A member of the RNA family "Plastid-clpP 5UTR RNA" from Musa balbisiana, 68 nucleotides long. The match comes from Rfam's covariance-model search (57 bits). It is annotated as a cis-regulatory element. Plastid clpP is a non-coding RNA (ncRNA) recognised in plastids. It was found in the prime untranslated region (5UTR) of a protease complex subunit (clpP) in plastids, suggesting a posible cis-regulatory function. Pairs were carried over by alignment from the consensus structure, which was predicted with LocARNA. A reference for the family is Richter et al. (2023), "Retrograde signaling in plants: A critical review focusing on the GUN pathway and beyond", Plant Commun.
RNA sequence: AAUUCUGUUCGUAGAAAACAAAGAGAAGGCAGUCUAUUCUAUACCCGAAAGUACAAUACGCAAUGGAG
Numbered sequence: 001a002a003u004u005c006u007g008u009u010c011g012u013a014g015a016a017a018a019c020a021a022a023g024a025g026a027a028g029g030c031a032g033u034c035u036a037u038u039c040u041a042u043a044c045c046c047g048a049a050a051g052u053a054c055a056a057u058a059c060g061c062a063a064u065g066g067a068g
Stems, first nucleotide, its partner, number of pairs: 003023002006020004045066002051059003